Rfam assigns this 423-nucleotide RNA from Lachnospiraceae bacterium 10-1 to the family "Bacterial RNase P class A".
The base pairs follow the family's consensus structure, which is taken from published work.
The organism belongs to Lachnospiraceae, within Bacteria.
It is annotated as a ribozyme.
RNA sequence: CAAGUAGGAUAAAUGAUCGCGGCUGUCUCCGCAAGGAUAGUACGCAGCCCUAUGGCUUGCGUAUGAUUGACAGGUGAGGAAAGUCCGGGCUUCACAGGGCAGGAUGCCGGAUAACAUCCGGUGGAGGCGACUCCAAGGCCAGUGCAACAGAAAUAUACCGCCAAGAGCUUAUGGCAGACCAAAACUUGUGAGUUUCGGUGAAAAGCCGGACUCUUGGUAAGGGUGGAAAGGCAGUGUAAGAGACUACCGCCUGUGCGGUAACGUACAGGGCACAUGUAAACCCCAUCCGAAGCAAGACCAAACAGAAAGCGUUAUCAGCCGGCCCGGCAAGCUUUCAGGUAGGUCGCUUGAGACUGUUGGCAACAACAGUUCUAGAUAGAUGAUCAUUCACGACAUAACCCGGCUUAUCGUCCUGCUUGGUUU
Numbered sequence: 001c002a003a004g005u006a007g008g009a010u011a012a013a014u015g016a017u018c019g020c021g022g023c024u025g026u027c028u029c030c031g032c033a034a035g036g037a038u039a040g041u042a043c044g045c046a047g048c049c050c051u052a053u054g055g056c057u058u059g060c061g062u063a064u065g066a067u068u069g070a071c072a073g074g075u076g077a078g079g080a081a082a083g084u085c086c087g088g089g090c091u092u093c094a095c096a097g098g099g100c101a102g103g104a105u106g107c108c109g110g111a112u113a114a115c116a117u118c119c120g121g122u123g124g125a126g127g128c129g130a131c132u133c134c135a136a137g138g139c140c141a142g143u144g145c146a147a148c149a150g151a152a153a154u155a156u157a158c159c160g161c162c163a164a165g166a167g168c169u170u171a172u173g174g175c176a177g178a179c180c181a182a183a184a185c186u187u188g189u190g191a192g193u194u195u196c197g198g199u200g201a202a203a204a205g206c207c208g209g210a211c212u213c214u215u216g217g218u219a220a221g222g223g224u225g226g227a228a229a230g231g232c233a234g235u236g237u238a239a240g241a242g243a244c245u246a247c248c249g250c251c252u253g254u255g256c257g258g259u260a261a262c263g264u265a266c267a268g269g270g271c272a273c274a275u276g277u278a279a280a281c282c283c284c285a286u287c288c289g290a291a292g293c294a295a296g297a298c299c300a301a302a303c304a305g306a307a308a309g310c311g312u313u314a315u316c317a318g319c320c321g322g323c324c325c326g327g328c329a330a331g332c333u334u335u336c337a338g339g340u341a342g343g344u345c346g347c348u349u350g351a352g353a354c355u356g357u358u359g360g361c362a363a364c365a366a367c368a369g370u371u372c373u374a375g376a377u378a379g380a381u382g383a384u385c386a387u388u389c390a391c392g393a394c395a396u397a398a399c400c401c402g403g404c405u406u407a408u409c410g411u412c413c414u415g416c417u418u419g420g421u422u423u
Stems, first nucleotide, its partner, number of pairs: 001419010011408001012388007020076002023073005081406003085403005090292004097325004102288005107121005122136001123134004137283002142281002144277003158222002160218008230248002233245003249271001250269008296345004305336006318328003352371008